About this RNA: This 60-nucleotide RNA from Pelotomaculum propionicicum belongs to the Rfam family "Fluoride riboswitch aptamer (crcB RNA motif)". The base pairs follow the family's consensus structure, which is taken from published work. NCBI's taxonomy places the organism under Bacteria, Clostridia, Eubacteriales, Desulfotomaculaceae, Pelotomaculum. It scores 36 bits against the family's covariance model.

[Rfam]
RNA sequence: AAAAAUGAAGGCGAUGGAGCUCGCCUCGCGCCAAACCUGGCUAAUGGCUCCUGUAGGAAG
Numbered sequence: 001a002a003a004a005a006u007g008a009a010g011g012c013g014a015u016g017g018a019g020c021u022c023g024c025c026u027c028g029c030g031c032c033a034a035a036c037c038u039g040g041c042u043a044a045u046g047g048c049u050c051c052u053g054u055a056g057g058a059a060g
Stems, first nucleotide, its partner, number of pairs: 010025004016051006030041004